A member of the RNA family "c-di-AMP riboswitch aptamer (ydaO/yuaA leader)" from Streptomyces sparsogenes, 127 nucleotides long.
RNA sequence: CGACAAGCAACACCAAGGGAACCGGGGAACCACCAACCUUGGGGUGAAUCGGGUCGAACUUGACCCGUAGGAGACCUUCCUGCUCCGAACCCGUCAGCUAACCCGGUAGGCGAGAGGGAAGGAAAGG
Number, nucleotide and partner (000 for none) at each position: 001c018002g000003a000004c000005a000006a000007g000008c000009a000010a000011c000012a000013c000014c000015a000016a000017g000018g001019g000020a000021a107022c106023c105024g104025g103026g102027g000028a000029a000030c000031c041032a040033c000034c000035a000036a000037c000038c000039u000040u032041g031042g092043g091044g090045u000046g000047a000048a000049u000050c067051g066052g065053g064054u000055c000056g000057a000058a000059c000060u000061u000062g000063a000064c053065c052066c051067g050068u000069a000070g086071g085072a084073g083074a000075c000076c000077u000078u000079c000080c000081u000082g000083c073084u072085c071086c070087g000088a000089a000090c044091c043092c042093g000094u000095c000096a000097g000098c000099u000100a000101a000102c026103c025104c024105g023106g022107u021108a000109g000110g000111c000112g000113a000114g000115a000116g000117g000118g000119a000120a000121g000122g000123a000124a000125a000126g000127g000